A member of the RNA family "TPP riboswitch aptamer (THI element)" from Rhodobacteraceae bacterium WD3A24, 109 nucleotides long. The source organism's lineage runs through Bacteria, Pseudomonadati, Pseudomonadota, Rhodobacterales and Paracoccaceae. The match comes from Rfam's covariance-model search (78 bits). Rfam links the family to the GO term thiamine pyrophosphate binding.
[Rfam]
RNA sequence: CUCUUCACCUCGGGGUGCCCCGGCAGGGGCUGAGAUGCGGGCGAGAGUCCGCGAACCCGUUGAACCUGAACCGGCUCGGACCGGCGGAGGGAAGGUGACUGGAUAUCCU
Numbered sequence: 001c002u003c004u005u006c007a008c009c010u011c012g013g014g015g016u017g018c019c020c021c022g023g024c025a026g027g028g029g030c031u032g033a034g035a036u037g038c039g040g041g042c043g044a045g046a047g048u049c050c051g052c053g054a055a056c057c058c059g060u061u062g063a064a065c066c067u068g069a070a071c072c073g074g075c076u077c078g079g080a081c082c083g084g085c086g087g088a089g090g091g092a093a094g095g096u097g098a099c100u101g102g103a104u105a106u107c108c109u
Stems, first nucleotide, its partner, number of pairs: 006097005011059004016053001017030005037052005065090003071084004

Rfam describes the family as follows. Vitamin B(1) in its active form thiamin pyrophosphate (TPP) is an essential coenzyme that is synthesised by coupling of pyrimidine and thiazole moieties in bacteria.